Shown here is an 87-nucleotide RNA sequence from Pachyramphus minor, a member of the family "Small nucleolar RNA snR60/Z15/Z230/Z193/J17". The match comes from Rfam's covariance-model search (55 bits). NCBI's taxonomy places the organism under Eukaryota, Craniata, Dipnotetrapodomorpha, Archosauria, Pachyramphus. Pairs were carried over by alignment from the consensus structure. A reference for the family is Lowe and Eddy (1999), "A computational screen for methylation guide snoRNAs in yeast", Science.
RNA sequence: GGGGCUGCUGUGAUGACAGCAUAGUUCAGCAGAUGAGCCCUGGUGAUCACACUGUCACUGUCUUUCGCUCCUGUCUGACGCAGCCUC
Numbered sequence: 001g002g003g004g005c006u007g008c009u010g011u012g013a014u015g016a017c018a019g020c021a022u023a024g025u026u027c028a029g030c031a032g033a034u035g036a037g038c039c040c041u042g043g044u045g046a047u048c049a050c051a052c053u054g055u056c057a058c059u060g061u062c063u064u065u066c067g068c069u070c071c072u073g074u075c076u077g078a079c080g081c082a083g084c085c086u087c
Stems, first nucleotide, its partner, number of pairs: 004084005